[Rfam]
RNA: Small nucleolar RNA R160
Nucleotides: 079
Base pairs, nucleotide, nucleotide: 001079002078003077004076005075
Number, partner (000 for none) and nucleotide at each position: 001079a002078g003077c004076a005075a006000a007000u008000g009000a010000g011000g012000a013000g014000g015000u016000c017000a018000u019000a020000c021000g022000a023000u024000c025000u026000g027000a028000a029000g030000u031000a032000u033000c034000u035000g036000a037000u038000g039000u040000u041000g042000a043000u044000a045000c046000a047000u048000a049000c050000a051000u052000a053000c054000a055000u056000g057000g058000u059000c060000u061000u062000c063000a064000a065000a066000g067000u068000u069000c070000u071000c072000u073000g074000a075005u076004u077003g078002c079001u